[Rfam]
RNA sequence: UGUAUUUCUUAUCUUUUCAUUACUUUAUAUUCUUUAAGAGCCUCUUUUACUAAACUGUGCUAGUGAUUCCCACAUGGCAAAUGCCACACAGCUCAUUCAAAAUGAAUGGGCAGUGUUGCACUUGCCAUAUCGGGAAUUCCCAGCGCAGUUUAGUAAAAGAGGCUCUAAGUUAUUUAUGGCUUCAUUUCUUUUU
Numbered sequence: 001u002g003u004a005u006u007u008c009u010u011a012u013c014u015u016u017u018c019a020u021u022a023c024u025u026u027a028u029a030u031u032c033u034u035u036a037a038g039a040g041c042c043u044c045u046u047u048u049a050c051u052a053a054a055c056u057g058u059g060c061u062a063g064u065g066a067u068u069c070c071c072a073c074a075u076g077g078c079a080a081a082u083g084c085c086a087c088a089c090a091g092c093u094c095a096u097u098c099a100a101a102a103u104g105a106a107u108g109g110g111c112a113g114u115g116u117u118g119c120a121c122u123u124g125c126c127a128u129a130u131c132g133g134g135a136a137u138u139c140c141c142a143g144c145g146c147a148g149u150u151u152a153g154u155a156a157a158a159g160a161g162g163c164u165c166u167a168a169g170u171u172a173u174u175u176a177u178g179g180c181u182u183c184a185u186u187u188c189u190u191u192u193u
Stems, first nucleotide, its partner, number of pairs: 001178004022170004037166010049154005055148007
RNA: tp2